[Rfam]
RNA: Streptomyces sRNA 4677
Organism: Streptomyces xanthophaeus
RNA sequence: CGCUCCGGUCCCGUCGGACGUCACCGAUCGAAGGACCGGGCGAAAGAACCGACCCGACCGACCCCUCCGGCUCCCCGCUCACUCACACGGGUGAACUGUGCCAACUCGGCUGGAUUUCCGGCGGGUUGGCGGGCAUAUGCUCGCCCCACAACAUCAGACAUGAGACGGCCCCCGCCGGGACUGGCAUCCCGGACGAGGGCCUGACCAACGAGGAAGUAGACGCUUCCCA
Numbered sequence: 001c002g003c004u005c006c007g008g009u010c011c012c013g014u015c016g017g018a019c020g021u022c023a024c025c026g027a028u029c030g031a032a033g034g035a036c037c038g039g040g041c042g043a044a045a046g047a048a049c050c051g052a053c054c055c056g057a058c059c060g061a062c063c064c065c066u067c068c069g070g071c072u073c074c075c076c077g078c079u080c081a082c083u084c085a086c087a088c089g090g091g092u093g094a095a096c097u098g099u100g101c102c103a104a105c106u107c108g109g110c111u112g113g114a115u116u117u118c119c120g121g122c123g124g125g126u127u128g129g130c131g132g133g134c135a136u137a138u139g140c141u142c143g144c145c146c147c148a149c150a151a152c153a154u155c156a157g158a159c160a161u162g163a164g165a166c167g168g169c170c171c172c173c174g175c176c177g178g179g180a181c182u183g184g185c186a187u188c189c190c191g192g193a194c195g196a197g198g199g200c201c202u203g204a205c206c207a208a209c210g211a212g213g214a215a216g217u218a219g220a221c222g223c224u225u226c227c228c229a
Stems, first nucleotide, its partner, number of pairs: 007209001009207001016072002019069001079094006109145001111143003167201005173195002177190004212227005